[Rfam]
RNA: SAM riboswitch aptamer (S box leader)
RNA sequence: CAUUUAUCGAGAAAGGCAGAGGGAUUGGGCCCUAUGAAGCCUUGGCAACCUUUUCUGGUCAUCUGAUCAGGAUUUCGGUGCCAACUCCCAUCCAGGCAUUGUCUGGAAGAGAUAAAGU
Numbered sequence: 001c002a003u004u005u006a007u008c009g010a011g012a013a014a015g016g017c018a019g020a021g022g023g024a025u026u027g028g029g030c031c032c033u034a035u036g037a038a039g040c041c042u043u044g045g046c047a048a049c050c051u052u053u054u055c056u057g058g059u060c061a062u063c064u065g066a067u068c069a070g071g072a073u074u075u076c077g078g079u080g081c082c083a084a085c086u087c088c089c090a091u092c093c094a095g096g097c098a099u100u101g102u103c104u105g106g107a108a109g110a111g112a113u114a115a116a117g118u
Stems, first nucleotide, its partner, number of pairs: 003116006013043005021032003026090004044082004049078002053072006086110001091107006